[Rfam]
RNA sequence: UUGAACAAGCAGAAGCCCCCGCUUCUCACCUAUGCCCUUGGCCUCUAGGUUGAUAAUUGAUCGACUAGAUAUAUGAUGCGGGUGCUUUAGUGCCUGCAUUUUUUGUGAGUU
Dot-bracket structure: ..........((((((....)))))).(((...((.....)).....)))..........................(((((((((....))))))))).............

This 111-nucleotide RNA sequence from Bombilactobacillus mellifer belongs to the Rfam family "Ribosomal protein L20 leader". It scores 61 bits against the family's covariance model. NCBI's taxonomy places the organism under Bacteria, Bacillati, Bacillota, Bacilli, Bombilactobacillus. By type it is a cis-regulatory leader.